Small nucleolar RNA snoR104: a 117-nucleotide RNA from Coptis chinensis. The source organism's lineage runs through Eukaryota, Streptophytina, Embryophyta, Ranunculales and Coptis. It is annotated as an H/ACA-box small nucleolar RNA. The family has 8 seed sequences and 612 matches in Rfam 15.1. On this family, see Marker et al., Curr Biol 2002: "Experimental RNomics: identification of 140 candidates for small non-messenger RNAs in the plant Arabidopsis thaliana".
[Rfam]
RNA sequence: AGGGAGCAUCCAUAAGCGAGAUGUUAACAGAUACAUUCUUCCUACAAAGUUUUUGGUAAUUUCCUGCUGGUAGCCCUUUAGAUUAGUUCUAUGAGUCUCAAAUUACCGCACAUUUGC
Numbered sequence: 001a002g003g004g005a006g007c008a009u010c011c012a013u014a015a016g017c018g019a020g021a022u023g024u025u026a027a028c029a030g031a032u033a034c035a036u037u038c039u040u041c042c043u044a045c046a047a048a049g050u051u052u053u054u055g056g057u058a059a060u061u062u063c064c065u066g067c068u069g070g071u072a073g074c075c076c077u078u079u080a081g082a083u084u085a086g087u088u089c090u091a092u093g094a095g096u097c098u099c100a101a102a103u104u105a106c107c108g109c110a111c112a113u114u115u116g117c
Stems, first nucleotide, its partner, number of pairs: 002028001005025006054110002066096003070092004076086002